The family of this 64-nucleotide sequence from Streptococcus zalophi is "Streptococcus sRNA Spd-sr37".
By type it is a small RNA.
A reference for the family is Tsui et al. (2010), "Identification and characterization of noncoding small RNAs in Streptococcus pneumoniae serotype 2 strain D39", J Bacteriol.
[Rfam]
RNA sequence: CAAUAACUAUGAUGGUCAAAGCUCAUGGAUGUUGUAAGCCUUUUUGCUUACACUUUCAAAGCUU
Numbered sequence: 001c002a003a004u005a006a007c008u009a010u011g012a013u014g015g016u017c018a019a020a021g022c023u024c025a026u027g028g029a030u031g032u033u034g035u036a037a038g039c040c041u042u043u044u045u046g047c048u049u050a051c052a053c054u055u056u057c058a059a060a061g062c063u064u
Stems, first nucleotide, its partner, number of pairs: 019064005033052006